[Rfam]
RNA sequence: UAAUCUGUUGGGACAUAUCCUCAUUUAGUUAAGGCAAACUCACAUCUGACUGCUCAAAAUCACCCGUUAUCACAAGUCCGACUACAUCAUUGACAUUGAAAAUAGAGGACAACUAUUGUGUGAAUAUUUUUUUAGAUU
Numbered sequence: 001u002a003a004u005c006u007g008u009u010g011g012g013a014c015a016u017a018u019c020c021u022c023a024u025u026u027a028g029u030u031a032a033g034g035c036a037a038a039c040u041c042a043c044a045u046c047u048g049a050c051u052g053c054u055c056a057a058a059a060u061c062a063c064c065c066g067u068u069a070u071c072a073c074a075a076g077u078c079c080g081a082c083u084a085c086a087u088c089a090u091u092g093a094c095a096u097u098g099a100a101a102a103u104a105g106a107g108g109a110c111a112a113c114u115a116u117u118g119u120g121u122g123a124a125u126a127u128u129u130u131u132u133u134a135g136a137u138u
Base pairs, nucleotide, nucleotide: 004136005135006134007133011127013125017121018120023116024115026112028110029109030108

Rfam assigns this 138-nucleotide RNA sequence from Populus deltoides to the family "MIR480 microRNA precursor family". NCBI's taxonomy places the organism under Eukaryota, Streptophytina, Tracheophyta, rosids, Populus. Rfam links the family to the GO terms miRNA-mediated post-transcriptional gene silencing and RISC complex.